[Rfam]
Group II catalytic intron D1-D4-3: a 173-nucleotide sequence from Clostridium tagluense. A search with the family's covariance model found it, with a score of 126 bits. Rfam's curators write: Group II introns are found in rRNA, tRNA and mRNA of organelles in fungi, plants and protists, and also in mRNA in bacteria. Rfam links the family to the GO term Group II intron splicing.
RNA sequence: UCCACCGUGAGGUGUGAACUGAAGGAAGUCUUAGGCAAAGUUCCGACCCAAGGAAUACGAACAUUUUCAGGCAAGCUAUUUGUGGAUGAGUCUGCUGAACAAGACAAAGUCCAAUAACUACAUAGAACGAAUAGGUGUAAAGAAUGUGGGUUCAUGGAAUGAAAGUGAAUUGU
Numbered sequence: 001u002c003c004a005c006c007g008u009g010a011g012g013u014g015u016g017a018a019c020u021g022a023a024g025g026a027a028g029u030c031u032u033a034g035g036c037a038a039a040g041u042u043c044c045g046a047c048c049c050a051a052g053g054a055a056u057a058c059g060a061a062c063a064u065u066u067u068c069a070g071g072c073a074a075g076c077u078a079u080u081u082g083u084g085g086a087u088g089a090g091u092c093u094g095c096u097g098a099a100c101a102a103g104a105c106a107a108a109g110u111c112c113a114a115u116a117a118c119u120a121c122a123u124a125g126a127a128c129g130a131a132u133a134g135g136u137g138u139a140a141a142g143a144a145u146g147u148g149g150g151u152u153c154a155u156g157g158a159a160u161g162a163a164a165g166u167g168a169a170u171u172g173u
Stems, first nucleotide, its partner, number of pairs: 001016001003014004028173002032169001035166002040160006046151005062146005071138003076134007084112004090105004